Rfam assigns this 81-nucleotide RNA sequence from Jaculus jaculus to the family "mir-194 microRNA precursor family". The family's consensus secondary structure was predicted with RNAalifold. Rfam links the family to the GO terms miRNA-mediated post-transcriptional gene silencing and RISC complex.
RNA sequence: UGAUGUCAUCAGGUGUAACAGCAACUCCAUGUGGACUAUGUACCAAUUUCCAGUGGGGGCGCUGUUACUUCUGAUGUCACC
Number, nucleotide and partner (000 for none) at each position: 001u000002g000003a000004u000005g000006u000007c000008a000009u074010c073011a072012g000013g000014u000015g068016u067017a066018a065019c064020a063021g062022c061023a000024a000025c058026u057027c056028c055029a054030u053031g000032u052033g051034g050035a000036c000037u000038a000039u000040g000041u000042a000043c000044c000045a000046a000047u000048u000049u000050c034051c033052a032053g030054u029055g028056g027057g026058g025059g000060c000061g022062c021063u020064g019065u018066u017067a016068c015069u000070u000071c000072u011073g010074a009075u000076g000077u000078c000079a000080c000081c000